[Rfam]
RNA sequence: AUAAUACUUCGCGCAAGUGAAGUGUGUAGGUCUGUGGGGGAUUUCUGCACGGGUAAAAGCAGCA
Numbered sequence: 001a002u003a004a005u006a007c008u009u010c011g012c013g014c015a016a017g018u019g020a021a022g023u024g025u026g027u028a029g030g031u032c033u034g035u036g037g038g039g040g041a042u043u044u045c046u047g048c049a050c051g052g053g054u055a056a057a058a059g060c061a062g063c064a
Base pairs, nucleotide, nucleotide: 006023007022008021009020010019011018012017024050025049026048027047028046029045030044033041